[Rfam]
Rfam assigns this 509-nucleotide part of an RNA from Marteilia refringens to the family "Eukaryotic small subunit ribosomal RNA". The family's consensus secondary structure is taken from published work.
RNA sequence: UGACGGAAGGGCACCAUCAGGCCUGGAUUAUGUGGCUCAAUUGGAUUCGACGCCCAGUACCCAACCAGGACCGGAGCACCCGACGAAGCACUGCUCGAAUAGCCUUGCCGAUGAGUGUGCGGGUGGUGCAUGGUCGCCGUAGUUCGUGAGGUGACUUGUCUGGUUAAUUCCGACAACGAACGCAACCGCCCCGUUCGACUAUCGAGCCCUGCGCAAUUUGCGUUCGGCCCUUAGGAAACUCGAACUGACAAACUCGUGGAGCGGGUCUACCGCAACCGAGAGGAAGCUACGGCGAUGGCAGGUCUGUGAUGCCCCUAGAAGCCCUGGGUUGCACACGUCAUACAAUGCCCGUCCGAACGCGCUUACGCCGUGCCGAGAGGUACAGCUUAAUCGUCGUAAAAGCGGGCCCAGUUGGGAUCGAGGAUUGCAAUUGUUCCUCGUGAACGCGGAAUGCCUCGUAGGGGCGGGUCAUCAACUCGCCCCGAAUAAGUCCCUGUCCUUUGUACACA
Numbered sequence: 001u002g003a004c005g006g007a008a009g010g011g012c013a014c015c016a017u018c019a020g021g022c023c024u025g026g027a028u029u030a031u032g033u034g035g036c037u038c039a040a041u042u043g044g045a046u047u048c049g050a051c052g053c054c055c056a057g058u059a060c061c062c063a064a065c066c067a068g069g070a071c072c073g074g075a076g077c078a079c080c081c082g083a084c085g086a087a088g089c090a091c092u093g094c095u096c097g098a099a100u101a102g103c104c105u106u107g108c109c110g111a112u113g114a115g116u117g118u119g120c121g122g123g124u125g126g127u128g129c130a131u132g133g134u135c136g137c138c139g140u141a142g143u144u145c146g147u148g149a150g151g152u153g154a155c156u157u158g159u160c161u162g163g164u165u166a167a168u169u170c171c172g173a174c175a176a177c178g179a180a181c182g183c184a185a186c187c188g189c190c191c192c193g194u195u196c197g198a199c200u201a202u203c204g205a206g207c208c209c210u211g212c213g214c215a216a217u218u219u220g221c222g223u224u225c226g227g228c229c230c231u232u233a234g235g236a237a238a239c240u241c242g243a244a245c246u247g248a249c250a251a252a253c254u255c256g257u258g259g260a261g262c263g264g265g266u267c268u269a270c271c272g273c274a275a276c277c278g279a280g281a282g283g284a285a286g287c288u289a290c291g292g293c294g295a296u297g298g299c300a301g302g303u304c305u306g307u308g309a310u311g312c313c314c315c316u317a318g319a320a321g322c323c324c325u326g327g328g329u330u331g332c333a334c335a336c337g338u339c340a341u342a343c344a345a346u347g348c349c350c351g352u353c354c355g356a357a358c359g360c361g362c363u364u365a366c367g368c369c370g371u372g373c374c375g376a377g378a379g380g381u382a383c384a385g386c387u388u389a390a391u392c393g394u395c396g397u398a399a400a401a402g403c404g405g406g407c408c409c410a411g412u413u414g415g416g417a418u419c420g421a422g423g424a425u426u427g428c429a430a431u432u433g434u435u436c437c438u439c440g441u442g443a444a445c446g447c448g449g450a451a452u453g454c455c456u457c458g459u460a461g462g463g464g465c466g467g468g469u470c471a472u473c474a475a476c477u478c479g480c481c482c483c484g485a486a487u488a489a490g491u492c493c494c495u496g497u498c499c500u501u502u503g504u505a506c507a508c509a
Stems, first nucleotide, its partner, number of pairs: 001507002003504003007501007016491002020455003024451001025343001027341002030338005035332002041056001043054002065327005071321001076118004089107002093103002122315002125313004131309001132307001133303003136299004142181006148157003161172003187291002193245006202236002249283001253280004347407006359394003367386002371382004414445001419440006461483008

Rfam's curators put it in the seed alignment. Gene Ontology terms of the family: ribosome and structural constituent of ribosome.